The record is a 78-nucleotide RNA sequence from Colocasia esculenta, which matches "Small nucleolar RNA R12" in Rfam. It is annotated as a C/D-box small nucleolar RNA. The source organism's lineage runs through Eukaryota, Streptophyta, Spermatophyta, Liliopsida and Colocasia. Rfam links the family to the GO terms RNA processing and nucleolus. The base pairs follow the family's consensus structure, which was predicted with PFOLD. From the family's description: snoR12 is a C/D box small nucleolar RNA, which acts as a methylation guide for 25S ribosomal RNA in plants. snoR12 has been alternatively named snoZ44 in Arabidopsis and snoZ131 in rice. For this family Rfam cites "The high diversity of snoRNAs in plants: identification and comparative study of 120 snoRNA genes from Oryza sativa" (Chen et al., Nucleic Acids Res, 2003).
[Rfam]
RNA sequence: AUGUGGGUGAUGAAACAAAUCAUUCGGAUUCCCAAUGAUAUGUAAAGAUGAUAUUACAACCAGCUACUUCUGACACAU
Number, nucleotide and partner (000 for none) at each position: 001a078002u077003g076004u075005g074006g000007g000008u000009g000010a000011u000012g000013a000014a000015a000016c000017a000018a000019a000020u000021c000022a000023u000024u000025c000026g000027g000028a000029u000030u000031c000032c000033c000034a000035a000036u000037g000038a000039u000040a000041u000042g000043u000044a000045a000046a000047g000048a000049u000050g000051a000052u000053a000054u000055u000056a000057c000058a000059a000060c000061c000062a000063g000064c000065u000066a000067c000068u000069u000070c000071u000072g000073a000074c005075a004076c003077a002078u001